[Rfam]
RNA sequence: CUUCUGCUGUGAUGAAAGAUGAAUAAAAAAUAAUGCACAUGUCAGACUUCGGAGAAUUACAUCAUUGAGAAGAAACACUCAAAACUCUCAGCAGAAG
Numbered sequence: 001c002u003u004c005u006g007c008u009g010u011g012a013u014g015a016a017a018g019a020u021g022a023a024u025a026a027a028a029a030a031u032a033a034u035g036c037a038c039a040u041g042u043c044a045g046a047c048u049u050c051g052g053a054g055a056a057u058u059a060c061a062u063c064a065u066u067g068a069g070a071a072g073a074a075a076c077a078c079u080c081a082a083a084a085c086u087c088u089c090a091g092c093a094g095a096a097g
Stems, first nucleotide, its partner, number of pairs: 001097007054063002
Small nucleolar RNA R64/Z200 family: a 97-nucleotide sequence from Eucalyptus grandis. The family's consensus secondary structure was predicted with PFOLD.